[Rfam]
RNA: Small nucleolar RNA snoR14
RNA sequence: GCGAGAUGACGAUGAAAUUCAUGUCUGUCAAUCCACUGAUUUACUGUGAUGUUAAAUCUGAAUACCUACUACAGGUUCUGAUCGC
Dot-bracket structure: ((((.............................................................................))))